[Rfam]
Trypanosomatid snoRNA TB9Cs3H2: a 64-nucleotide sequence from Leptomonas pyrrhocoris. NCBI's taxonomy places the organism under Eukaryota, Discoba, Metakinetoplastina, Leishmaniinae, Leptomonas. A reference for the family is Liang et al. (2005), "A genome-wide analysis of C/D and H/ACA-like small nucleolar RNAs in Trypanosoma brucei reveals a trypanosome-specific pattern of rRNA modification", RNA. The base pairs follow the family's consensus structure, which was predicted with WAR. The family has 3 seed sequences and 31 matches in Rfam 15.1. The match comes from Rfam's covariance-model search (74 bits).
RNA sequence: AGUGCGGUCAGGUAAAGUGGCGAUGGUGCGACCCAUCCGCGCCACUGGUUCAAACCGCACGAGA
Numbered sequence: 001a002g003u004g005c006g007g008u009c010a011g012g013u014a015a016a017g018u019g020g021c022g023a024u025g026g027u028g029c030g031a032c033c034c035a036u037c038c039g040c041g042c043c044a045c046u047g048g049u050u051c052a053a054a055c056c057g058c059a060c061g062a063g064a
Stems, first nucleotide, its partner, number of pairs: 002060005016046007027035001